[Rfam]
RNA sequence: ACCCGGUACCGGGCCCCUCUGGCGGGAAGUUUCGGCGCUCCCGUGAUGUCGGUACCUUUGC
Numbered sequence: 001a002c003c004c005g006g007u008a009c010c011g012g013g014c015c016c017c018u019c020u021g022g023c024g025g026g027a028a029g030u031u032u033c034g035g036c037g038c039u040c041c042c043g044u045g046a047u048g049u050c051g052g053u054a055c056c057u058u059u060g061c
Base pairs, nucleotide, nucleotide: 006055007054008053009052010051011050012049022044023043024042025041026040028039029038030037
RNA: terC RNA